[Rfam]
RNA: mir-3473 microRNA precursor family
RNA sequence: UCCACUGAGCCAUCUCCCCAGCCCCACAAAUUUUAUUUUUAAAGAAAUAAAAUUUUGGGGCUGGUGAGAUGGCUCAGUGGU
Numbered sequence: 001u002c003c004a005c006u007g008a009g010c011c012a013u014c015u016c017c018c019c020a021g022c023c024c025c026a027c028a029a030a031u032u033u034u035a036u037u038u039u040u041a042a043a044g045a046a047a048u049a050a051a052a053u054u055u056u057g058g059g060g061c062u063g064g065u066g067a068g069a070u071g072g073c074u075c076a077g078u079g080g081u
Base pairs, nucleotide, nucleotide: 002080003079004078005077006076007075008074009073010072011071012070013069014068015067016066018064019063020062021061022060023059024058